About this RNA: A member of the RNA family "ZMP/ZTP riboswitch aptamer (pfl RNA motif)", 81 nucleotides long. A search with the family's covariance model found it, with a score of 58 bits. A reference for the family is Jones and Ferre-D'Amare (2015), "Recognition of the bacterial alarmone ZMP through long-distance association of two RNA subdomains", Nat Struct Mol Biol.
[Rfam]
RNA sequence: CAGUGGCUGCGCGACUGGCGGAUUGUGAUGGAGAACCAUCGUGGAACGCAGCCCUGAAUGCCGACCGCCUGGGCCCUAUAA
Numbered sequence: 001c002a003g004u005g006g007c008u009g010c011g012c013g014a015c016u017g018g019c020g021g022a023u024u025g026u027g028a029u030g031g032a033g034a035a036c037c038a039u040c041g042u043g044g045a046a047c048g049c050a051g052c053c054c055u056g057a058a059u060g061c062c063g064a065c066c067g068c069c070u071g072g073g074c075c076c077u078a079u080a081a
Stems, first nucleotide, its partner, number of pairs: 003055001005053007015043001017069005028039004060074003